[Rfam]
RNA sequence: CGUAUGGUGUGCAACUCCGGGUUGUAUAGCGAUACGGCCUUAGCUUAGAGGU
Numbered sequence: 001c002g003u004a005u006g007g008u009g010u011g012c013a014a015c016u017c018c019g020g021g022u023u024g025u026a027u028a029g030c031g032a033u034a035c036g037g038c039c040u041u042a043g044c045u046u047a048g049a050g051g052u
Base pairs, nucleotide, nucleotide: 001036002035003034004033005032007030008029011025012024013023014022015021016020

Shown here is a 52-nucleotide RNA, a member of the family "L31-Gammaproteobacteria ribosomal protein leader". It is annotated as a cis-regulatory leader. Pairs were carried over by alignment from the consensus structure, which is taken from published work.